Rfam assigns this 80-nucleotide sequence from Dromaius novaehollandiae to the family "mir-2970 microRNA precursor family". The literature on the family includes a 2011 paper in BMC Genomics by Gunaratne et al., "Song exposure regulates known and novel microRNAs in the zebra finch auditory forebrain". The organism belongs to Dromaius, within Eukaryota.
RNA sequence: CGCCCUGCAGACAGUCAGCAGUUGGUCUGGUGCGAGCAGCGAGUCUCAGAUCACCUCUUGGCUGUGGGCAGUGCGGCGAG
Numbered sequence: 001c002g003c004c005c006u007g008c009a010g011a012c013a014g015u016c017a018g019c020a021g022u023u024g025g026u027c028u029g030g031u032g033c034g035a036g037c038a039g040c041g042a043g044u045c046u047c048a049g050a051u052c053a054c055c056u057c058u059u060g061g062c063u064g065u066g067g068g069c070a071g072u073g074c075g076g077c078g079a080g
Stems, first nucleotide, its partner, number of pairs: 003073001005071004011065008020056002023053008